Rfam assigns this 600-nucleotide part of an RNA from Plasmodium knowlesi to the family "Eukaryotic large subunit ribosomal RNA".
Rfam's curators put it in the seed alignment.
The family is grouped with related families in Rfam's "LSU clan".
NCBI's taxonomy places the organism under Eukaryota, Apicomplexa, Plasmodium, Plasmodium, Plasmodium knowlesi.
Gene Ontology terms of the family: ribosome and structural constituent of ribosome.
RNA sequence: GGAAGUAGCAACUAUUCAAAUGAGAACUUUGAAGACUGAAGUGGAGAAGGGUUUCUUGUCAACUGUGAUUGGACAAGAGUUAGCCGCUCCUAAGGGAUAGCUGAAAAGUGUUUAUAUUGGGGAGGAUUCAAUCUUUUUAUCCCCGUCUCGAAAGGGAAACAGGUUGAUAUUCCUGUGCCGAUAGUAUUUUGAGUGUAAUAAAGAUGGUAACAUAUACAUAAAUGAACUCCUUGACAUAGGUCUUACACUCGGGGUGCGUUUUCUUUGCACUUUAGCUCUAUAGCAAACCUUGGAAUCAAUUUACUUGGAGAAGAGGUUCGCUGAAUCAAUUCAGGCAAAUUCCCCGCUGCAAUUUAACUUUUGUUAUUUUACGGCGCCGAAAUUUCCUGUUUUGUAGUAAUAGUAAUUCGUUUUUAUGAAUUAUCCGAAGCCGUAAGAACUAUCCUUGAAAAAAGGAGGGAACAGCAAUUAAAAGGAGGGGCGAAAAAUCCAAUCCCCGGAUUGUUUUUUUCUGCUUUUCCCUUUUUCUUGUAUACUCUGAAUACUUGUAUGAGCGUACCAACAACCGCAUCAGGUCUCCAAGGUUAACAGCCUCUGGUU
Numbered sequence: 001g002g003a004a005g006u007a008g009c010a011a012c013u014a015u016u017c018a019a020a021u022g023a024g025a026a027c028u029u030u031g032a033a034g035a036c037u038g039a040a041g042u043g044g045a046g047a048a049g050g051g052u053u054u055c056u057u058g059u060c061a062a063c064u065g066u067g068a069u070u071g072g073a074c075a076a077g078a079g080u081u082a083g084c085c086g087c088u089c090c091u092a093a094g095g096g097a098u099a100g101c102u103g104a105a106a107a108g109u110g111u112u113u114a115u116a117u118u119g120g121g122g123a124g125g126a127u128u129c130a131a132u133c134u135u136u137u138u139a140u141c142c143c144c145g146u147c148u149c150g151a152a153a154g155g156g157a158a159a160c161a162g163g164u165u166g167a168u169a170u171u172c173c174u175g176u177g178c179c180g181a182u183a184g185u186a187u188u189u190u191g192a193g194u195g196u197a198a199u200a201a202a203g204a205u206g207g208u209a210a211c212a213u214a215u216a217c218a219u220a221a222a223u224g225a226a227c228u229c230c231u232u233g234a235c236a237u238a239g240g241u242c243u244u245a246c247a248c249u250c251g252g253g254g255u256g257c258g259u260u261u262u263c264u265u266u267g268c269a270c271u272u273u274a275g276c277u278c279u280a281u282a283g284c285a286a287a288c289c290u291u292g293g294a295a296u297c298a299a300u301u302u303a304c305u306u307g308g309a310g311a312a313g314a315g316g317u318u319c320g321c322u323g324a325a326u327c328a329a330u331u332c333a334g335g336c337a338a339a340u341u342c343c344c345c346g347c348u349g350c351a352a353u354u355u356a357a358c359u360u361u362u363g364u365u366a367u368u369u370u371a372c373g374g375c376g377c378c379g380a381a382a383u384u385u386c387c388u389g390u391u392u393u394g395u396a397g398u399a400a401u402a403g404u405a406a407u408u409c410g411u412u413u414u415u416a417u418g419a420a421u422u423a424u425c426c427g428a429a430g431c432c433g434u435a436a437g438a439a440c441u442a443u444c445c446u447u448g449a450a451a452a453a454a455g456g457a458g459g460g461a462a463c464a465g466c467a468a469u470u471a472a473a474a475g476g477a478g479g480g481g482c483g484a485a486a487a488a489u490c491c492a493a494u495c496c497c498c499g500g501a502u503u504g505u506u507u508u509u510u511u512c513u514g515c516u517u518u519u520c521c522c523u524u525u526u527u528c529u530u531g532u533a534u535a536c537u538c539u540g541a542a543u544a545c546u547u548g549u550a551u552g553a554g555c556g557u558a559c560c561a562a563c564a565a566c567c568g569c570a571u572c573a574g575g576u577c578u579c580c581a582a583g584g585u586u587a588a589c590a591g592c593c594u595c596u597g598g599u600u
Stems, first nucleotide, its partner, number of pairs: 015033006034600004043580004049560002054078006063071001085556003089155002094149002096112003100109003119142003159176005179552002192546005198539001204219003227458006236443004241438006249428003252272006287317005296308004328422006566575002582594004